RNA: Small nucleolar RNA R12
Organism: Tetracentron sinense
RNA sequence: UGUUGGAUGAUGAAACAAAUCAGACGGAUUCCCAAUGAUUUUUAUCAUAAAAACAUGAUAUCUCAAUCAGCUACUUCUGACAACA
Numbered sequence: 001u002g003u004u005g006g007a008u009g010a011u012g013a014a015a016c017a018a019a020u021c022a023g024a025c026g027g028a029u030u031c032c033c034a035a036u037g038a039u040u041u042u043u044a045u046c047a048u049a050a051a052a053a054c055a056u057g058a059u060a061u062c063u064c065a066a067u068c069a070g071c072u073a074c075u076u077c078u079g080a081c082a083a084c085a
Stems, first nucleotide, its partner, number of pairs: 001085005